[Rfam]
RNA sequence: CUUCAGUUGCAUCCUCGCGACUAAUGACAACCCUCGACCGCCCCUGCGGUAAAGCCUCUCAUUAGCCGCGCGAAAUUCUGCAAACUAAAGAUCACACUAAGCAACAAUACAUCAGUUUGGUCCGGAUUGCUGCCGAUUGCUCGAAAAAAAGGGGCCAUAAAGGCCCCCUCUU
Numbered sequence: 001c002u003u004c005a006g007u008u009g010c011a012u013c014c015u016c017g018c019g020a021c022u023a024a025u026g027a028c029a030a031c032c033c034u035c036g037a038c039c040g041c042c043c044c045u046g047c048g049g050u051a052a053a054g055c056c057u058c059u060c061a062u063u064a065g066c067c068g069c070g071c072g073a074a075a076u077u078c079u080g081c082a083a084a085c086u087a088a089a090g091a092u093c094a095c096a097c098u099a100a101g102c103a104a105c106a107a108u109a110c111a112u113c114a115g116u117u118u119g120g121u122c123c124g125g126a127u128u129g130c131u132g133c134c135g136a137u138u139g140c141u142c143g144a145a146a147a148a149a150a151g152g153g154g155c156c157a158u159a160a161a162g163g164c165c166c167c168c169u170c171u172u
Base pairs, nucleotide, nucleotide: 001090002089003088005086006085009081010080011079016072017071018070019069021065022064023063024062025061026060027059097124151167152166153165154164155163156162